[Rfam]
Rfam assigns this 300-nucleotide RNA sequence from Nesidiocoris tenuis to the family "Metazoan signal recognition particle RNA".
A search with the family's covariance model found it, with a score of 245 bits.
The family's RNA type in Rfam is non-coding RNA gene.
Pairs were carried over by alignment from the consensus structure, which is taken from published work.
Rfam describes the family as follows. The signal recognition particle (SRP) is a universally conserved ribonucleoprotein.
Lineage of the source: Eukaryota > Metazoa > Panarthropoda > Cimicoidea > Nesidiocoris.
RNA sequence: ACUGGGGGUUCUGGCGUGCCCUUGUAAUCCAGCUACUUGGAGGUCAGUUGUUGAGGAUGGCUUGAGAUCGGGAUCAACUGUGCAAUGGUGCACUUACGUCGAUCAGGCGUCCGCACUAAGCUGGUCAUCAACAUGGUGUCGAUGGGGGAGCCUAUCGUCACCAGGUUUGCUAAGGAGAGGCGCACCGGGCCAGGGGGGAAACCCAGCAGCCAAAAGUCUCCGUGGGCAGCAGUAGUGGGAUCGCGCCCGUGAGUGGGGCCCAUUGUACAGCCCGAACGAUACAGUCAGACCAAUAGCUAA
Dot-bracket structure: (((((((((.(....).))))))....(((........)))))).((((((((....(((((...(.(((((.....((((((((..(.((.(((((.(....(.(((((((.(((((.((((.((((.(((.(((((.(((((((....))))))).))))).)))..(...)..(((((......(((....(((....)))....)))....))))).)))).))))..)))))))...))))).).).))))))).).))))))))))))).).....)))))...))))))))..